Rfam assigns this 45-nucleotide RNA sequence from Ligilactobacillus agilis to the family "PreQ1 (pre queuosine) riboswitch aptamer".
RNA sequence: AACACAGUGGUUCGCAAUUAUCCCACUAAAAAAAACUAAGGAGCG
Number, nucleotide and partner (000 for none) at each position: 001a000002a000003c000004a000005c000006a027007g026008u025009g024010g023011u000012u000013c000014g000015c000016a037017a000018u000019u000020a000021u000022c000023c010024c009025a008026c007027u006028a000029a000030a000031a000032a000033a000034a000035a000036c000037u016038a000039a000040g000041g000042a000043g000044c000045g000
This family is a bacterial riboswitch that binds to the metabolite preQ1, an intermediate in the biosynthesis of the modified nucleoside queuosine from GTP. One example of this riboswitch is located in the leader of the Bacillus subtilis ykvJKLM (queCDEF) operon which encodes four genes necessary for queuosine production. PreQ1 binding to the riboswitch aptamer is thought to induce premature transcription termination within the leader to down-regulate expression of these genes. The match comes from Rfam's covariance-model search (49 bits).